[Rfam]
Rfam assigns this 84-nucleotide RNA from Zoogloea ramigera to the family "SAH (S-adenosyl-L-homocysteine) riboswitch aptamer". Lineage of the source: Bacteria > Pseudomonadati > Rhodocyclales > Zoogloeaceae > Zoogloea.
Nucleotides: 084
Base pairs, nucleotide, nucleotide: 002061003060004059005058006057007056008055021048022047023046024045025044
Number, partner (000 for none) and nucleotide at each position: 001000c002061u003060u004059g005058c006057c007056g008055a009000g010000g011000a012000g013000c014000g015000u016000u017000g018000c019000g020000a021048c022047c023046u024045g025044c026000u027000c028000a029000u030000c031000c032000c033000c034000c035000g036000g037000a038000u039000g040000a041000c042000g043000u044025g045024c046023a047022g048021g049000c050000c051000a052000g053000g054000c055008u056007c057006g058005g059004c060003a061002a062000c063000c064000g065000a066000u067000c068000a069000a070000c071000g072000g073000c074000g075000c076000u077000c078000g079000c080000a081000a082000a083000c084000c